This 173-nucleotide RNA sequence from Acetobacterium woodii belongs to the Rfam family "Lysine riboswitch aptamer". The family's consensus secondary structure is taken from published work.

RNA sequence: AAUUAUGAUAGAGGCGCGAGCUUUAUAACUAACAACGAAGACCAUGGCAAAUGGGAUGAUACGUUGCGAAAGGAAAGAUCGCCGAAGGAUGAUGUUUCGCCACCAUUUUCCUGGGCUUGCUGUUAAGAACAGUAAGACUGUCAUCACAACAGUGAUGGGGUGCUAUCUAAAAC
Numbered sequence: 001a002a003u004u005a006u007g008a009u010a011g012a013g014g015c016g017c018g019a020g021c022u023u024u025a026u027a028a029c030u031a032a033c034a035a036c037g038a039a040g041a042c043c044a045u046g047g048c049a050a051a052u053g054g055g056a057u058g059a060u061a062c063g064u065u066g067c068g069a070a071a072g073g074a075a076a077g078a079u080c081g082c083c084g085a086a087g088g089a090u091g092a093u094g095u096u097u098c099g100c101c102a103c104c105a106u107u108u109u110c111c112u113g114g115g116c117u118u119g120c121u122g123u124u125a126a127g128a129a130c131a132g133u134a135a136g137a138c139u140g141u142c143a144u145c146a147c148a149a150c151a152g153u154g155a156u157g158g159g160g161u162g163c164u165a166u167c168u169a170a171a172a173c
Stems, first nucleotide, its partner, number of pairs: 007167005016082004021077004033066005039060001086112004091107004096102001113139002116136008141158007
Dot-bracket structure: ......(((((....((((.((((........(((((.(....................).))))).......)))).))))...((((.((((.(.....).)))).))))((.((((((((.....)))))))).)).(((((((....)))))))....)))))......